The record is a 45-nucleotide RNA sequence from Bradyrhizobium diazoefficiens, which matches "chrB-b RNA" in Rfam.
[Rfam]
RNA sequence: UGGGGGCAAUGCAGACCCCCCAUGAGACUUCGGUCCAAGCUCUGC
Numbered sequence: 001u002g003g004g005g006g007c008a009a010u011g012c013a014g015a016c017c018c019c020c021c022a023u024g025a026g027a028c029u030u031c032g033g034u035c036c037a038a039g040c041u042c043u044g045c
Stems, first nucleotide, its partner, number of pairs: 001022006011045005026035003
Notes: The sequence is in the family's curated seed alignment. NCBI's taxonomy places the organism under Bacteria, Pseudomonadota, Hyphomicrobiales, Bradyrhizobium, Bradyrhizobium diazoefficiens.